[Rfam]
RNA sequence: UUUGUAGGCCUGCCGAAUCCGCGGUCUCCAUGAGAUCGCGGUACGGGGGACCCAGGUUCGGGGCGAAUCGGCCGUUGCACAGGCCGUAGCGCAUCUCUUCCAGCGCGAGCCCGGCAGCUAACCCCGGAGGCGCACGAGAAGAGAGGA
Numbered sequence: 001u002u003u004g005u006a007g008g009c010c011u012g013c014c015g016a017a018u019c020c021g022c023g024g025u026c027u028c029c030a031u032g033a034g035a036u037c038g039c040g041g042u043a044c045g046g047g048g049g050a051c052c053c054a055g056g057u058u059c060g061g062g063g064c065g066a067a068u069c070g071g072c073c074g075u076u077g078c079a080c081a082g083g084c085c086g087u088a089g090c091g092c093a094u095c096u097c098u099u100c101c102a103g104c105g106c107g108a109g110c111c112c113g114g115c116a117g118c119u120a121a122c123c124c125c126g127g128a129g130g131c132g133c134a135c136g137a138g139a140a141g142a143g144a145g146g147a
Base pairs, nucleotide, nucleotide: 011132012131013130014129019041020040021039022038023037024036025035026034027033028032044126045125046124047123048122053060061112062111063110069086070085071084072083089106090105091104092103

A member of the RNA family "c-di-AMP riboswitch aptamer (ydaO/yuaA leader)" from Thermoleophilum album, 147 nucleotides long. A search with the family's covariance model found it, with a score of 78 bits. This family represents a conserved RNA structure found upstream of the ydaO and yuaA genes in Bacillus subtilis and related genes in other bacteria.